[Rfam]
RNA sequence: AUAAUGAUACUUCUCUACGGAGCCGGUGGCGAACCCAGCGGGGGUGAAAUUCCCAUGA
Numbered sequence: 001a002u003a004a005u006g007a008u009a010c011u012u013c014u015c016u017a018c019g020g021a022g023c024c025g026g027u028g029g030c031g032a033a034c035c036c037a038g039c040g041g042g043g044g045u046g047a048a049a050u051u052c053c054c055a056u057g058a
Stems, first nucleotide, its partner, number of pairs: 012055001013022003023041003027037003042054003